[Rfam]
The record is a 171-nucleotide RNA from Jeotgalibaca porci, which matches "Group II catalytic intron D1-D4-3" in Rfam. Its family is annotated with Group II intron splicing in the Gene Ontology. NCBI's taxonomy places the organism under Bacteria, Bacillati, Bacillota, Lactobacillales, Jeotgalibaca.
RNA sequence: UCCAAUGUGAGGUGGAAUCUUAAGGAAGCUUCAGGAAAAGCUUUGGCCUGAUAAACAGAAAUCACAUAAGAGGUGAGUCGAGUGAAUAAGGCUGCGGAAGAAAUCGAAGUCCGAUAACUGUUAUUACUCGAAGCAUAAAUGUGGCAGGGAGAUGAAGUGAAAAAGCACGUU
Dot-bracket structure: ((((.(....).))))...........(.(.........((((((.((((...........((((((.....(((..(((((((.((..((.(........).))...)).).............))))))..)))..))))))))))....))))))..........).)
Numbered sequence: 001u002c003c004a005a006u007g008u009g010a011g012g013u014g015g016a017a018u019c020u021u022a023a024g025g026a027a028g029c030u031u032c033a034g035g036a037a038a039a040g041c042u043u044u045g046g047c048c049u050g051a052u053a054a055a056c057a058g059a060a061a062u063c064a065c066a067u068a069a070g071a072g073g074u075g076a077g078u079c080g081a082g083u084g085a086a087u088a089a090g091g092c093u094g095c096g097g098a099a100g101a102a103a104u105c106g107a108a109g110u111c112c113g114a115u116a117a118c119u120g121u122u123a124u125u126a127c128u129c130g131a132a133g134c135a136u137a138a139a140u141g142u143g144g145c146a147g148g149g150a151g152a153u154g155a156a157g158u159g160a161a162a163a164a165g166c167a168c169g170u171u
Stems, first nucleotide, its partner, number of pairs: 001016004006011001028171001030169001040158006047148004062144006073136003078131006084112001086110002090105002093102001